The family of this 600-nucleotide part of an RNA from Alternaria atra is "Eukaryotic small subunit ribosomal RNA". The organism belongs to Alternaria sect. Ulocladioides, within Eukaryota. The family's consensus secondary structure is taken from published work. The family has 90 seed sequences and 75,755 matches in Rfam 15.1. A search with the family's covariance model found it, with a score of 1799 bits.

[Rfam]
RNA sequence: UACCUGGUUGAUUCUGCCAGUAGUCAUAUGCUUGUCUCAAAGAUUAAGCCAUGCAUGUCUAAGUAUAAGCAAUUAUACCGUGAAACUGCGAAUGGCUCAUUAAAUCAGUUAUCGUUUAUUUGAUAAUACCUUACUACUUGGAUAACCGUGGUAAUUCUAGAGCUAAUACAUGCUGAAAAUCCCGACUUCGGAAGGGAUGUGUUUAUUAGAUAAAAAACCAAUGCCCUUCGGGGCUUUUUGGUGAUUCAUGAUAACUUUACGGAUCGCAUAGCCUUGCGCUGGCGACGGUUCAUUCAAAUUUCUGCCCUAUCAACUUUCGAUGGUAAGGUAUUGGCUUACCAUGGUUUCAACGGGUAACGGGGAAUUAGGGUUCGAUUCCGGAGAGGGAGCCUGAGAAACGGCUACCACAUCCAAGGAAGGCAGCAGGCGCGCAAAUUACCCAAUCCCGACACGGGGAGGUAGUGACAAUAAAUACUGAUACAGGGCUCUUUUGGGUCUUGUAAUUGGAAUGAGUACAAUUUAAACCUCUUAACGAGGAACAAUUGGAGGGCAAGUCUGGUGCCAGCAGCCGCGGUAAUUCCAGCUCCAAUAGCGUAUAUU
Numbered sequence: 001u002a003c004c005u006g007g008u009u010g011a012u013u014c015u016g017c018c019a020g021u022a023g024u025c026a027u028a029u030g031c032u033u034g035u036c037u038c039a040a041a042g043a044u045u046a047a048g049c050c051a052u053g054c055a056u057g058u059c060u061a062a063g064u065a066u067a068a069g070c071a072a073u074u075a076u077a078c079c080g081u082g083a084a085a086c087u088g089c090g091a092a093u094g095g096c097u098c099a100u101u102a103a104a105u106c107a108g109u110u111a112u113c114g115u116u117u118a119u120u121u122g123a124u125a126a127u128a129c130c131u132u133a134c135u136a137c138u139u140g141g142a143u144a145a146c147c148g149u150g151g152u153a154a155u156u157c158u159a160g161a162g163c164u165a166a167u168a169c170a171u172g173c174u175g176a177a178a179a180u181c182c183c184g185a186c187u188u189c190g191g192a193a194g195g196g197a198u199g200u201g202u203u204u205a206u207u208a209g210a211u212a213a214a215a216a217a218c219c220a221a222u223g224c225c226c227u228u229c230g231g232g233g234c235u236u237u238u239u240g241g242u243g244a245u246u247c248a249u250g251a252u253a254a255c256u257u258u259a260c261g262g263a264u265c266g267c268a269u270a271g272c273c274u275u276g277c278g279c280u281g282g283c284g285a286c287g288g289u290u291c292a293u294u295c296a297a298a299u300u301u302c303u304g305c306c307c308u309a310u311c312a313a314c315u316u317u318c319g320a321u322g323g324u325a326a327g328g329u330a331u332u333g334g335c336u337u338a339c340c341a342u343g344g345u346u347u348c349a350a351c352g353g354g355u356a357a358c359g360g361g362g363a364a365u366u367a368g369g370g371u372u373c374g375a376u377u378c379c380g381g382a383g384a385g386g387g388a389g390c391c392u393g394a395g396a397a398a399c400g401g402c403u404a405c406c407a408c409a410u411c412c413a414a415g416g417a418a419g420g421c422a423g424c425a426g427g428c429g430c431g432c433a434a435a436u437u438a439c440c441c442a443a444u445c446c447c448g449a450c451a452c453g454g455g456g457a458g459g460u461a462g463u464g465a466c467a468a469u470a471a472a473u474a475c476u477g478a479u480a481c482a483g484g485g486c487u488c489u490u491u492u493g494g495g496u497c498u499u500g501u502a503a504u505u506g507g508a509a510u511g512a513g514u515a516c517a518a519u520u521u522a523a524a525c526c527u528c529u530u531a532a533c534g535a536g537g538a539a540c541a542a543u544u545g546g547a548g549g550g551c552a553a554g555u556c557u558g559g560u561g562c563c564a565g566c567a568g569c570c571g572c573g574g575u576a577a578u579u580c581c582a583g584c585u586c587c588a589a590u591a592g593c594g595u596a597u598a599u600u
Stems, first nucleotide, its partner, number of pairs: 004020005022600003026597007035470001037468001041463001042430001048428003052425003057089002062087003069081002096383003106304003111299002115297002121292003137172001139170002146162001149159003179198005186191001203254006217242004224233003264285004269281004306354003313345003320342008358380004362373004385406002388403003408419001410417002436461001438460003444456005476506003479502010513533002515530001517529001543589006556583004565572002